The family of this 112-nucleotide RNA from Papio anubis is "Small nucleolar RNA ACA64". Rfam classes the family as an H/ACA-box small nucleolar RNA. On this family, see Schattner et al., RNA 2006: "A computational screen for mammalian pseudouridylation guide H/ACA RNAs".

[Rfam]
RNA sequence: GUUGGUUGAAAAACACCCUCGGCUUUGGCCGUGGCCACGGGUGAGAUUCGGCGCCCAGAGCCUCACUGCGCGCUGCUCCACGUGCCGCGGGGAAACCCAGGCCCAGACAGGC
Numbered sequence: 001g002u003u004g005g006u007u008g009a010a011a012a013a014c015a016c017c018c019u020c021g022g023c024u025u026u027g028g029c030c031g032u033g034g035c036c037a038c039g040g041g042u043g044a045g046a047u048u049c050g051g052c053g054c055c056c057a058g059a060g061c062c063u064c065a066c067u068g069c070g071c072g073c074u075g076c077u078c079c080a081c082g083u084g085c086c087g088c089g090g091g092g093a094a095a096c097c098c099a100g101g102c103c104c105a106g107a108c109a110g111g112c
Base pairs, nucleotide, nucleotide: 005052006051007050008049009048010047014043015042016041021036022035023034024033067105070102071101073100074099077093078092079091081089082088083087